The family of this 167-nucleotide RNA from Mangrovactinospora gilvigrisea is "c-di-AMP riboswitch aptamer (ydaO/yuaA leader)".

RNA sequence: GCACCACAUCUGCGUCCGGGUGGGCACCUGCGGAGCCGGGGAACCAUGCACUUCCCGGGGUGAAUCGGCGUCAGGGACGCCUCCGCGAGGAGGCGGUGAGGCGCUGUAGGGCCCGUCUUCCGGCCCGAACCCGACAGCUCACCCGGUCUGCGGCGAAGGAAGAAGGA
Number, nucleotide and partner (000 for none) at each position: 001g151002c150003a149004c000005c032006a000007c000008a000009u000010c000011u000012g000013c000014g000015u000016c000017c000018g000019g000020g000021u000022g000023g000024g000025c000026a000027c000028c000029u000030g000031c000032g005033g000034a000035g147036c146037c145038g144039g143040g142041g000042a000043a000044c000045c057046a000047u000048g000049c000050a000051c000052u000053u000054c000055c000056c000057g045058g132059g131060g130061u000062g000063a000064a000065u000066c106067g105068g104069c103070g102071u101072c100073a000074g000075g000076g000077a000078c000079g000080c000081c000082u000083c000084c000085g000086c000087g000088a000089g000090g000091a000092g000093g000094c000095g000096g000097u000098g000099a000100g072101g071102c070103g069104c068105u067106g066107u000108a000109g126110g125111g124112c123113c000114c000115g000116u000117c000118u000119u000120c000121c000122g000123g112124c111125c110126c109127g000128a000129a000130c060131c059132c058133g000134a000135c000136a000137g000138c000139u000140c000141a000142c040143c039144c038145g037146g036147u035148c000149u003150g002151c001152g000153g000154c000155g000156a000157a000158g000159g000160a000161a000162g000163a000164a000165g000166g000167a000
Taxonomically the source falls in Mangrovactinospora (Bacteria, Actinomycetota, Kitasatosporales, Streptomycetaceae).